[Rfam]
RNA sequence: CAUCACACGCAGGGGAACCCCGCGGCCGUCGCGUCCGGGGUUGAGAAGACCUCGGUCUGACCCUUUGAACCUGUUGGUUGAUACCAGCGUAGGGAGUCGAUUAUGAUCACAG
Numbered sequence: 001c002a003u004c005a006c007a008c009g010c011a012g013g014g015g016a017a018c019c020c021c022g023c024g025g026c027c028g029u030c031g032c033g034u035c036c037g038g039g040g041u042u043g044a045g046a047a048g049a050c051c052u053c054g055g056u057c058u059g060a061c062c063c064u065u066u067g068a069a070c071c072u073g074u075u076g077g078u079u080g081a082u083a084c085c086a087g088c089g090u091a092g093g094g095a096g097u098c099g100a101u102u103a104u105g106a107u108c109a110c111a112g
Base pairs, nucleotide, nucleotide: 009097010096011064012063013062014061016058017041018040019039020038021037048057049056050055070093071092072091073090074087075086076085077084